[Rfam]
RNA sequence: CUGUGCUAGCUGGGGAGGUAGCGGUGCCCUGUACUCUCAAUCCGCUAUAGAGAGGGUGAUGCCUGCUCUAGGCUUUUUCAGGUGAGGGUCUGCCCUUUCAAGGUGGUGUUGAGGGCUGAGUCUUGUGCAACAGCAACCUGUGAACCGUGUCAGGUCCGGAAGGAAGCAGCACUAAGCAGCCCCUGUUGUGUGCCGCAAGGUCGCUUAGUCUGAGUCGCUGAGAUUGGUUACGCCUGGUCUGAACUGUCAAAAGCAGGUGCACAG
Numbered sequence: 001c002u003g004u005g006c007u008a009g010c011u012g013g014g015g016a017g018g019u020a021g022c023g024g025u026g027c028c029c030u031g032u033a034c035u036c037u038c039a040a041u042c043c044g045c046u047a048u049a050g051a052g053a054g055g056g057u058g059a060u061g062c063c064u065g066c067u068c069u070a071g072g073c074u075u076u077u078u079c080a081g082g083u084g085a086g087g088g089u090c091u092g093c094c095c096u097u098u099c100a101a102g103g104u105g106g107u108g109u110u111g112a113g114g115g116c117u118g119a120g121u122c123u124u125g126u127g128c129a130a131c132a133g134c135a136a137c138c139u140g141u142g143a144a145c146c147g148u149g150u151c152a153g154g155u156c157c158g159g160a161a162g163g164a165a166g167c168a169g170c171a172c173u174a175a176g177c178a179g180c181c182c183c184u185g186u187u188g189u190g191u192g193c194c195g196c197a198a199g200g201u202c203g204c205u206u207a208g209u210c211u212g213a214g215u216c217g218c219u220g221a222g223a224u225u226g227g228u229u230a231c232g233c234c235u236g237g238u239c240u241g242a243a244c245u246g247u248c249a250a251a252a253g254c255a256g257g258u259g260c261a262c263a264g
Base pairs, nucleotide, nucleotide: 001264002263003262004261005260006259009057010056011055012030013029014028015027017025019023034054035053036052037051038050062257063256064255065254066253067252071248072247073246078242079241080240081239082238083237085235086234087233091230092229094227095226098223099222102219103218105216106215107214113211114210115209116208117207118206119205120204121203122199123198124197125196126195127194128190129189131188132187133186134185135184138179139178140177141176147172148171149170150169155164156163157162

A member of the RNA family "Bacterial large signal recognition particle RNA" from Tyzzerella sp. An114, 264 nucleotides long. Its Rfam clan is "SRP clan". By type it is a non-coding RNA gene. The organism belongs to Tyzzerella, within Bacteria. Rfam links the family to the GO terms SRP-dependent cotranslational protein targeting to membrane, signal sequence recognition and signal recognition particle, plasma membrane targeting. Pairs were carried over by alignment from the consensus structure, which is taken from published work.